[Rfam]
RNA: Alphaproteobacterial sRNA BjrC1505
Organism: Rhodopseudomonas palustris
RNA sequence: CAUUUACGCGCGAUUAAGCUUUCCCGCCUAUUACUGUGGAUGUCCAUCUUUGGACCGAGUGGCUCCUGUCCACUCUGUUUUGACGCCUCCCUGUUAUCAACUUAAAAGCCGCCGGAAACGGCGGCUCUUUUUUG
Dot-bracket structure: (......).(....((.((......)).)).).........((((......)))).((((((.......))))))......((((......))))........((.((((((((....)))))))).)).....
Numbered sequence: 001c002a003u004u005u006a007c008g009c010g011c012g013a014u015u016a017a018g019c020u021u022u023c024c025c026g027c028c029u030a031u032u033a034c035u036g037u038g039g040a041u042g043u044c045c046a047u048c049u050u051u052g053g054a055c056c057g058a059g060u061g062g063c064u065c066c067u068g069u070c071c072a073c074u075c076u077g078u079u080u081u082g083a084c085g086c087c088u089c090c091c092u093g094u095u096a097u098c099a100a101c102u103u104a105a106a107a108g109c110c111g112c113c114g115g116a117a118a119c120g121g122c123g124g125c126u127c128u129u130u131u132u133u134g
Stems, first nucleotide, its partner, number of pairs: 001008001010032001015030002018027002042055004057075006082095004104129002107126008